[Rfam]
RNA sequence: GGACGAACCCUUGGAGAGAUCCAAUGUGCAUAGCACAAAAUGGACGCCGAAGGCGCAAAAGUGCGGUCUAAAAUUCAAAAAUUUUACCGAUAUCUUGAAACGCUCAGGCAAAAGGACAGGGGCAAGAGA
Numbered sequence: 001g002g003a004c005g006a007a008c009c010c011u012u013g014g015a016g017a018g019a020u021c022c023a024a025u026g027u028g029c030a031u032a033g034c035a036c037a038a039a040a041u042g043g044a045c046g047c048c049g050a051a052g053g054c055g056c057a058a059a060a061g062u063g064c065g066g067u068c069u070a071a072a073a074u075u076c077a078a079a080a081a082u083u084u085u086a087c088c089g090a091u092a093u094c095u096u097g098a099a100a101c102g103c104u105c106a107g108g109c110a111a112a113a114g115g116a117c118a119g120g121g122g123c124a125a126g127a128g129a
Stems, first nucleotide, its partner, number of pairs: 008122006020044004046109003049105002053103003059096002
About this RNA
Shown here is a 129-nucleotide sequence from Pasteurella bettyae, a member of the family "Glycine riboswitch aptamer".